This 148-nucleotide RNA from Sideroxydans sp. CL21 belongs to the Rfam family "Group II catalytic intron D1-D4-7". A search with the family's covariance model found it, with a score of 87 bits. The source organism's lineage runs through Bacteria, Betaproteobacteria, Nitrosomonadales, Gallionellaceae and Sideroxydans.
RNA sequence: CCGGUCGUUCCAUCAACAUUCUCUACCUGGACAUGCGAAGCUGGUAAUCGCUUGGUGUGAAGCUCCAGGACAAUGUAACCGCCGAUUAAUUCGGUACUUCAACCCGCGAGGGGAAACGGAAUCUGCCGGCAAUGAGGCGGAGAGGUGC
Numbered sequence: 001c002c003g004g005u006c007g008u009u010c011c012a013u014c015a016a017c018a019u020u021c022u023c024u025a026c027c028u029g030g031a032c033a034u035g036c037g038a039a040g041c042u043g044g045u046a047a048u049c050g051c052u053u054g055g056u057g058u059g060a061a062g063c064u065c066c067a068g069g070a071c072a073a074u075g076u077a078a079c080c081g082c083c084g085a086u087u088a089a090u091u092c093g094g095u096a097c098u099u100c101a102a103c104c105c106g107c108g109a110g111g112g113g114a115a116a117c118g119g120a121a122u123c124u125g126c127c128g129g130c131a132a133u134g135a136g137g138c139g140g141a142g143a144g145g146u147g148c
Stems, first nucleotide, its partner, number of pairs: 004017002007014001027068005032059005038053004043048001081095005097118001099116001104111002122141006
Rfam describes the family as follows. Group II introns are found in rRNA, tRNA and mRNA of organelles in fungi, plants and protists, and also in mRNA in bacteria.